Background
This 225-nucleotide sequence from Miscanthus lutarioriparius belongs to the Rfam family "MIR6217 microRNA precursor family". Rfam 15.1 lists 2,266 matches to the family in 13 species. A search with the family's covariance model found it, with a score of 168 bits.

RNA sequence: GGCUACAAAAAUAACUUAUUCUAUAGCCACUUUGAGUUACGAUAAUUACUAUGUUAAUUUACGAGAUUAUAGUAACUCCUUGCUAAGUAGUUUACUAUAACGUUAUGGUAAAUAUCCCCAUGUGUUAUAGUAAUCCAACUAUCGUAAAUAUGAAUUGGUAUUAUCGUAAAUUAGUAUAUAAAAUUAUCGUAAAUGAAGGUGGCUACACAAAUAGGGUGCAUUUCC
Numbered sequence: 001g002g003c004u005a006c007a008a009a010a011a012u013a014a015c016u017u018a019u020u021c022u023a024u025a026g027c028c029a030c031u032u033u034g035a036g037u038u039a040c041g042a043u044a045a046u047u048a049c050u051a052u053g054u055u056a057a058u059u060u061a062c063g064a065g066a067u068u069a070u071a072g073u074a075a076c077u078c079c080u081u082g083c084u085a086a087g088u089a090g091u092u093u094a095c096u097a098u099a100a101c102g103u104u105a106u107g108g109u110a111a112a113u114a115u116c117c118c119c120a121u122g123u124g125u126u127a128u129a130g131u132a133a134u135c136c137a138a139c140u141a142u143c144g145u146a147a148a149u150a151u152g153a154a155u156u157g158g159u160a161u162u163a164u165c166g167u168a169a170a171u172u173a174g175u176a177u178a179u180a181a182a183a184u185u186a187u188c189g190u191a192a193a194u195g196a197a198g199g200u201g202g203c204u205a206c207a208c209a210a211a212u213a214g215g216g217u218g219c220a221u222u223u224c225c
Base pairs, nucleotide, nucleotide: 007223008222009221012218013217015215016214017213018212019211020210022207024205025204026203027202028201029200030199031198032197033196037192038191039190040189041188042187043186044185045184046183047182050178051177052176053175054174055173056172057171058170059169060168061167062166065165066164067163069161070160071159074155080147081146082145083144087142088141089140090139091138092137093132094131095130096129097128098127099126100125101124102123103122107117108116